[Rfam]
This 117-nucleotide sequence from Phascolarctos cinereus belongs to the Rfam family "U5 spliceosomal RNA".
RNA sequence: AUACUCUGGUUUUCUCUUCAUAUCGUAUAAAUCUUUCGCCUUUUACUAAAGAUUUCCGUGGAGAGGAACAGGUAAGAGUUAUCAACUAAUUUUUUGAGGCCUUAAAAAAAUAAGGCC
Numbered sequence: 001a002u003a004c005u006c007u008g009g010u011u012u013u014c015u016c017u018u019c020a021u022a023u024c025g026u027a028u029a030a031a032u033c034u035u036u037c038g039c040c041u042u043u044u045a046c047u048a049a050a051g052a053u054u055u056c057c058g059u060g061g062a063g064a065g066g067a068a069c070a071g072g073u074a075a076g077a078g079u080u081a082u083c084a085a086c087u088a089a090u091u092u093u094u095u096g097a098g099g100c101c102u103u104a105a106a107a108a109a110a111u112a113a114g115g116c117c
Base pairs, nucleotide, nucleotide: 003079004078005077006076009069010068011067013066014065015064016063017062018061019060020059029055030054031053032052033051034050035049036048099116100115101114102113103112104111

Record summary
Rfam's curators write: U5 RNA is a component of both types of known spliceosome. The precise function of this molecule is unknown, though it is known that the 5' loop is required for splice site selection and p220 binding, and that both the 3' stem-loop and the Sm site are important for Sm protein binding and cap methylation.